[Rfam]
RNA sequence: CAGCUCCUUCGGGGCAGGGUGAAAUUCCCGACCGGCGGUGAAAGCCCGCGAAGCCCGGCGCAAAGCGCGGGGCCCGACCCGGUGGAACUCCGGGGCCGACGGUGAAAGUCCGGAUGGGAGGAGGAGGUG
Number, nucleotide and partner (000 for none) at each position: 001c000002a000003g000004c126005u125006c124007c123008u122009u121010c120011g000012g000013g000014g000015c000016a000017g029018g028019g027020u000021g000022a000023a000024a000025u000026u000027c019028c018029c017030g000031a109032c108033c098034g097035g049036c048037g047038g046039u000040g000041a000042a000043a000044g096045c095046c038047c037048g036049c035050g000051a000052a000053g073054c072055c000056c000057g000058g000059c000060g000061c000062a000063a000064a000065g000066c000067g000068c000069g000070g000071g000072g054073c053074c000075c000076g000077a000078c094079c093080c092081g091082g090083u000084g000085g000086a000087a000088c000089u000090c082091c081092g080093g079094g078095g045096c044097c034098g033099a000100c112101g111102g110103u000104g000105a000106a000107a000108g032109u031110c102111c101112g100113g000114a000115u000116g000117g000118g000119a000120g010121g009122a008123g007124g006125a005126g004127g000128u000129g000
Background:
The family of this 129-nucleotide RNA sequence from Oceanithermus profundus is "FMN riboswitch aptamer (RFN element)". It scores 104 bits against the family's covariance model. Lineage of the source: Bacteria > Deinococcota > Deinococci > Oceanithermus > Oceanithermus profundus.